[Rfam]
RNA sequence: CUCUGGAGAGAGGCGCAGGCAGCGUCCGCCGACGGGAUAACGAUCUCAGGCAAAAAGACAGAG
Number, nucleotide and partner (000 for none) at each position: 001c063002u062003c061004u060005g059006g000007a000008g000009a000010g000011a000012g026013g025014c024015g023016c000017a000018g000019g000020c000021a000022g000023c015024g014025u013026c012027c000028g051029c050030c049031g047032a046033c000034g000035g045036g044037a000038u000039a000040a000041c000042g000043a000044u036045c035046u032047c031048a000049g030050g029051c028052a000053a000054a000055a000056a000057g000058a000059c005060a004061g003062a002063g001
RNA: Glycine riboswitch aptamer